[Rfam]
RNA sequence: AGCUUGUCAGUGAUGUACUUUGAAAAAAAUGUCUGAACAUAUGAAUUAAUAGUGAUUUCAGCAUUUAACUGAGAUGAGCU
Numbered sequence: 001a002g003c004u005u006g007u008c009a010g011u012g013a014u015g016u017a018c019u020u021u022g023a024a025a026a027a028a029a030u031g032u033c034u035g036a037a038c039a040u041a042u043g044a045a046u047u048a049a050u051a052g053u054g055a056u057u058u059c060a061g062c063a064u065u066u067a068a069c070u071g072a073g074a075u076g077a078g079c080u
Base pairs, nucleotide, nucleotide: 002079003078004077005076006075007074008073

A member of the RNA family "Small nucleolar RNA SNORD72" from Monodelphis domestica, 80 nucleotides long.
Rfam classes the family as a C/D-box small nucleolar RNA.
Rfam describes the family as follows. snoRNA HBII-240 belongs to the CD family of snoRNAs. It is the human orthologue of the mouse MBII-240 and is predicted to guide 2'O-ribose methylation of the large 28S rRNA at residue U4590.
Taxonomically the source falls in Monodelphis (Eukaryota, Opisthokonta, Chordata, Didelphimorphia).